[Rfam]
Nucleotides: 170
Stems, first nucleotide, its partner, number of pairs: 002015005029169001032166001035163002040157006046150005062145006073137003076133001078132006085113004091106004
Number, partner (000 for none) and nucleotide at each position: 001000g002015u003014c004013g005012u006011c007000g008000u009000g010000a011006g012005g013004c014003g015002g016000g017000g018000u019000c020000u021000g022000a023000a024000g025000g026000a027000a028000g029169c030000g031000u032166g033000u034000a035163g036162c037000a038000a039000a040157g041156c042155c043154a044153c045152g046150a047149c048148c049147u050146g051000a052000c053000g054000a055000a056000c057000a058000g059000a060000a061000a062145c063144c064143a065142g066141a067140u068000a069000u070000g071000a072000g073137g074136c075135c076133u077000a078132c079131c080130c081129g082128g083127c084000c085113g086112g087111a088110c089000g090000a091106g092105c093104g094103a095000g096000c097000a098000a099000u100000g101000g102000a103094u104093c105092g106091c107000g108000a109000a110088g111087u112086c113085c114000g115000c116000a117000a118000c119000c120000a121000u122000c123000a124000a125000g126000g127083g128082c129081c130080g131079g132078g133076g134000u135075g136074g137073u138000a139000a140067a141066u142065c143064u144063g145062g146050c147049a148048g149047g150046u151000g152045u153044g154043u155042g156041g157040u158000g159000a160000a161000g162036g163035c164000g165000g166032u167000u168000g169029g170000g